Source information:
The record is a 66-nucleotide sequence from Gadus morhua, which matches "Selenocysteine insertion sequence 1" in Rfam.
RNA sequence: ACCAGUUUAUGAAGACUUGCACUAAAACCCUGAACUAGGGGUGGUGUGAGUCCGAUGUCACCUGGU
Numbered sequence: 001a002c003c004a005g006u007u008u009a010u011g012a013a014g015a016c017u018u019g020c021a022c023u024a025a026a027a028c029c030c031u032g033a034a035c036u037a038g039g040g041g042u043g044g045u046g047u048g049a050g051u052c053c054g055a056u057g058u059c060a061c062c063u064g065g066u
Stems, first nucleotide, its partner, number of pairs: 001066005014052010029039003
From the family's description: The incorporation of selenocysteine into a protein sequence is directed by an in-frame UGA codon (usually a stop codon) within the coding region of the mRNA. Selenoprotein mRNAs contain a conserved secondary structure in the 3' UTR that is required for the distinction of UGA stop from UGA selenocysteine.
Taxonomically the source falls in Gadus (Eukaryota, Gnathostomata, Neoteleostei, Zeiogadaria).